[Rfam]
RNA sequence: GCAUUUGCGUAAAAGCGCGAGGCUUCCUAUAUCCGUCCUUGCCGGGUUUCACCCGGCUAUGACGAUAAACUGCGGCGAGUAAUAGACGCAGCGGGACCCGGGGCAGUACCCGGCGGCUCCACCAUAAAAGGUGGUGUAUCGGACACCGUUUUCUGACGGGGCCGAACCAGAUCGACGUGUGCUGAAAAGCGCUGUUUUCGUUCGGAAUGGGACCACCGCAACGGGCCCAUAACCACAAGUGCCAACGAUAACGAAGCACUGGCGAUUGCGGCGUAAUUGAGGGCCUCACGGCCUGACAUUACACCAAAAUAGCGCGGCCAGGACCCCACCGGGCAACAGAAGGGGAUUCC
Numbered sequence: 001g002c003a004u005u006u007g008c009g010u011a012a013a014a015g016c017g018c019g020a021g022g023c024u025u026c027c028u029a030u031a032u033c034c035g036u037c038c039u040u041g042c043c044g045g046g047u048u049u050c051a052c053c054c055g056g057c058u059a060u061g062a063c064g065a066u067a068a069a070c071u072g073c074g075g076c077g078a079g080u081a082a083u084a085g086a087c088g089c090a091g092c093g094g095g096a097c098c099c100g101g102g103g104c105a106g107u108a109c110c111c112g113g114c115g116g117c118u119c120c121a122c123c124a125u126a127a128a129a130g131g132u133g134g135u136g137u138a139u140c141g142g143a144c145a146c147c148g149u150u151u152u153c154u155g156a157c158g159g160g161g162c163c164g165a166a167c168c169a170g171a172u173c174g175a176c177g178u179g180u181g182c183u184g185a186a187a188a189g190c191g192c193u194g195u196u197u198u199c200g201u202u203c204g205g206a207a208u209g210g211g212a213c214c215a216c217c218g219c220a221a222c223g224g225g226c227c228c229a230u231a232a233c234c235a236c237a238a239g240u241g242c243c244a245a246c247g248a249u250a251a252c253g254a255a256g257c258a259c260u261g262g263c264g265a266u267u268g269c270g271g272c273g274u275a276a277u278u279g280a281g282g283g284c285c286u287c288a289c290g291g292c293c294u295g296a297c298a299u300u301a302c303a304c305c306a307a308a309a310u311a312g313c314g315c316g317g318c319c320a321g322g323a324c325c326c327c328a329c330c331g332g333g334c335a336a337c338a339g340a341a342g343g344g345g346a347u348u349c350c
Base pairs, nucleotide, nucleotide: 041057042056043055044054045053061202062201063200064199065198072195073194074193075192076191077190087181088180089179091178092177093176098113099112100111101110102109114164115163116162117161118160119159120158203218204217205216208229209228210227213225214224315331316330317329321348322347324345325344326343
Shown here is a 350-nucleotide sequence, a member of the family "Alphaproteobacteria transfer-messenger RNA". The family's consensus secondary structure is taken from published work. The match comes from Rfam's covariance-model search (194 bits). The family's RNA type in Rfam is non-coding RNA gene. On this family, see Felden et al., RNA 1997: "Probing the structure of the Escherichia coli 10Sa RNA (tmRNA)".